[Rfam]
RNA: glmS glucosamine-6-phosphate activated ribozyme aptamer
Organism: Paenibacillus sp. HGF7
RNA sequence: CAGCAACAACAAGCGCCAGAACUUGCGCGGGAAGCGUCCGAAUUGUACAUGCGGGUUAAUCGACCCGGUAUGGCAAAGAUAACGUGGAGCCGGCAAGUUGACGAGGUGAAGGUGUUCGAAUUUUUCGGCGGGGACCUUCCGGUAGUUCAUUCCUACCGACAAGCUGGAGAGCAAACUGUCCGGGUGACCGGGCACACAAGAAUCCAGCCGAAUGAUUC
Number, nucleotide and partner (000 for none) at each position: 001c000002a000003g000004c000005a000006a000007c000008a000009a000010c000011a000012a000013g000014c000015g000016c000017c000018a000019g000020a099021a098022c097023u096024u095025g094026c093027g000028c000029g090030g000031g000032a000033a000034g000035c000036g000037u000038c000039c000040g000041a000042a000043u000044u000045g000046u000047a000048c000049a000050u000051g000052c000053g000054g000055g000056u000057u000058a000059a000060u000061c000062g000063a000064c000065c000066c000067g000068g000069u000070a000071u000072g000073g000074c000075a000076a000077a000078g000079a000080u000081a000082a000083c000084g000085u000086g000087g000088a000089g000090c029091c000092g000093g026094c025095a024096a023097g022098u021099u020100g000101a000102c000103g000104a000105g000106g000107u000108g139109a138110a137111g136112g135113u000114g000115u000116u128117c127118g126119a125120a000121u000122u000123u000124u000125u119126c118127g117128g116129c000130g000131g000132g000133g000134a000135c112136c111137u110138u109139c108140c158141g157142g156143u155144a154145g153146u000147u000148c000149a000150u000151u000152c000153c145154u144155a143156c142157c141158g140159a000160c000161a000162a000163g208164c207165u206166g205167g204168a203169g000170a000171g000172c000173a000174a000175a000176c000177u194178g193179u192180c191181c190182g189183g188184g000185u000186g000187a000188c183189c182190g181191g180192g179193c178194a177195c000196a000197c000198a000199a000200g000201a000202a000203u168204c167205c166206a165207g164208c163209c000210g000211a000212a000213u000214g000215a000216u000217u000218c000